[Rfam]
RNA: c-di-AMP riboswitch aptamer (ydaO/yuaA leader)
RNA sequence: AUUUCUAAAUCAUUGACACCUAAUGGUGCGGGGGAACCGUUUAUCCGUCCAGGGGGUGAAUCGUUACAAGGUAGGGCUACUCAAAAGUCCGAAUCCGACAGCUAACCUCAUAAGCGUUUGUGAGAAGAAAG
Number, nucleotide and partner (000 for none) at each position: 001a000002u000003u000004u000005c000006u000007a000008a000009a000010u000011c116012a000013u114014u113015g000016a000017c000018a027019c026020c025021u000022a000023a000024u000025g020026g019027u018028g111029c000030g109031g108032g107033g106034g000035a000036a000037c000038c053039g000040u000041u000042u000043a000044u000045c000046c000047g000048u000049c000050c000051a000052g000053g038054g096055g095056g094057u000058g000059a000060a000061u000062c071063g000064u069065u000066a000067c000068a000069a064070g000071g062072u000073a000074g090075g089076g088077c087078u000079a000080c000081u000082c000083a000084a000085a000086a000087g077088u076089c075090c074091g000092a000093a000094u056095c055096c054097g000098a000099c000100a000101g000102c000103u000104a000105a000106c033107c032108u031109c030110a000111u028112a000113a014114g013115c000116g011117u000118u000119u000120g000121u000122g000123a000124g000125a000126a000127g000128a000129a000130a000131g000